[Rfam]
RNA sequence: AUGAAGAUUAUUGGAAAUAUCAAUUAGGAUAACCGUAGGAGCAAGGAGUUAAGAUAUCACUCAUCUUAUUCUGAAACUCUCAGGUAAUUAACAAUAAUCUGACG
Dot-bracket structure: .....((((((((.....(((......))).((((...(((...(((((..................)))))....))).).)))......)))))))).....
Overview
Shown here is a 104-nucleotide RNA sequence from Tissierella sp. P1, a member of the family "Glycine riboswitch aptamer". This family represents the bacterial glycine riboswitch. Clan: Glycine riboswitch clan.